RNA sequence: GUCGGUUGGUCGGACCUGGCGGUCCCGGAUCCUGAACAGCCCCCCCAGCCCCCCUGGAUCGGCGGACUGGCCAACCGGCGCUUUGGUAUCCCCUCCCCUAGCGCAGCCCGUGCGGUCCCUCUCUCCAGCCGCGCGGGUU
Numbered sequence: 001g002u003c004g005g006u007u008g009g010u011c012g013g014a015c016c017u018g019g020c021g022g023u024c025c026c027g028g029a030u031c032c033u034g035a036a037c038a039g040c041c042c043c044c045c046c047a048g049c050c051c052c053c054c055u056g057g058a059u060c061g062g063c064g065g066a067c068u069g070g071c072c073a074a075c076c077g078g079c080g081c082u083u084u085g086g087u088a089u090c091c092c093c094u095c096c097c098c099u100a101g102c103g104c105a106g107c108c109c110g111u112g113c114g115g116u117c118c119c120u121c122u123c124u125c126c127a128g129c130c131g132c133g134c135g136g137g138u139u
Base pairs, nucleotide, nucleotide: 001079002078003077004076005075006074007073008072009071010070011069012068013067016065017064018063020061021060022059023058024057027053028052032048033047034046090101105139106138107137108136109135110134111133112132113131114130115129
This 139-nucleotide sequence from Phenylobacterium zucineum belongs to the Rfam family "Caulobacter sRNA CC3664". The match comes from Rfam's covariance-model search (64 bits). Lineage of the source: Bacteria > Pseudomonadati > Pseudomonadota > Alphaproteobacteria > Phenylobacterium zucineum. The family's RNA type in Rfam is small RNA.